[Rfam]
RNA sequence: GAACUCCUUACAACAAUUUAAAAAGAACUUAUUUCUCAAAACCCUCGAGUUCUG
Numbered sequence: 001g002a003a004c005u006c007c008u009u010a011c012a013a014c015a016a017u018u019u020a021a022a023a024a025g026a027a028c029u030u031a032u033u034u035c036u037c038a039a040a041a042c043c044c045u046c047g048a049g050u051u052c053u054g
Stems, first nucleotide, its partner, number of pairs: 001052006
Rfam assigns this 54-nucleotide sequence from Tieghemostelium lacteum to the family "Class I RNA from Dictyostelium". The source organism's lineage runs through Eukaryota, Amoebozoa, Eumycetozoa, Dictyosteliales and Tieghemostelium. It is one of the family's seed sequences. It is annotated as a non-coding RNA gene. The literature on the family includes a 2004 paper in Nucleic Acids Res by Aspegren et al., "Novel non-coding RNAs in Dictyostelium discoideum and their expression during development".